RNA sequence: CAACACUUGAUACUAACUGAGGUAUCUAUACCCUAGUCUUGUGUCAAAGGCUUCUGGUGUGUUGUGAUAGCUGGGUUUCAGAAGUGAUUGCACUUAAAGCAAAAGGCAUGAGUCUUGCAAGCCCAGUGUGUAAAGUUGUCCUCUGAGUUAUAACCCAAAGGCACGACU
Numbered sequence: 001c002a003a004c005a006c007u008u009g010a011u012a013c014u015a016a017c018u019g020a021g022g023u024a025u026c027u028a029u030a031c032c033c034u035a036g037u038c039u040u041g042u043g044u045c046a047a048a049g050g051c052u053u054c055u056g057g058u059g060u061g062u063u064g065u066g067a068u069a070g071c072u073g074g075g076u077u078u079c080a081g082a083a084g085u086g087a088u089u090g091c092a093c094u095u096a097a098a099g100c101a102a103a104a105g106g107c108a109u110g111a112g113u114c115u116u117g118c119a120a121g122c123c124c125a126g127u128g129u130g131u132a133a134a135g136u137u138g139u140c141c142u143c144u145g146a147g148u149u150a151u152a153a154c155c156c157a158a159a160g161g162c163a164c165g166a167c168u
Stems, first nucleotide, its partner, number of pairs: 004086005015077004020072002023069004027061006035052006105162001107160001126141001128139003142159001144157002147154002
The record is a 168-nucleotide RNA from Rousettus aegyptiacus, which matches "Small Cajal body specific RNA 1" in Rfam. The family's consensus secondary structure was predicted with RNAalifold. It scores 122 bits against the family's covariance model. From the family's description: scaRNAs are a specific class of small nuclear RNAs which localise to the Cajal bodies and guide the modification of RNA polymerase II transcribed spliceosomal RNAs U1, U2, U4, U5 and U12. A reference for the family is Darzacq et al. (2002), "Cajal body-specific small nuclear RNAs: a novel class of 2'-O-methylation and pseudouridylation guide RNAs", EMBO J. Lineage of the source: Eukaryota > Metazoa > Eumetazoa > Mammalia > Rousettus.